[Rfam]
RNA sequence: CAGCGUUCUCAGGGCGGGGUGGAAGUCCCCACCGGCGGUAUCCGGGACGCGGUCGUCAGGCCGUCGAUCCCGGGAGCCCGCGAGCGCCCGGCAUCGCCCUUGCGGUGCCGGGGUCAGCAGACCUGGUGAGAGGCCAGGGCCGACGGUCACAGUCCGGAUGAAAGAGAUCGCGU
Numbered sequence: 001c002a003g004c005g006u007u008c009u010c011a012g013g014g015c016g017g018g019g020u021g022g023a024a025g026u027c028c029c030c031a032c033c034g035g036c037g038g039u040a041u042c043c044g045g046g047a048c049g050c051g052g053u054c055g056u057c058a059g060g061c062c063g064u065c066g067a068u069c070c071c072g073g074g075a076g077c078c079c080g081c082g083a084g085c086g087c088c089c090g091g092c093a094u095c096g097c098c099c100u101u102g103c104g105g106u107g108c109c110g111g112g113g114u115c116a117g118c119a120g121a122c123c124u125g126g127u128g129a130g131a132g133g134c135c136a137g138g139g140c141c142g143a144c145g146g147u148c149a150c151a152g153u154c155c156g157g158a159u160g161a162a163a164g165a166g167a168u169c170g171c172g173u
Stems, first nucleotide, its partner, number of pairs: 003171003007167004017029003031153002033142002035081004084118002122138005144156003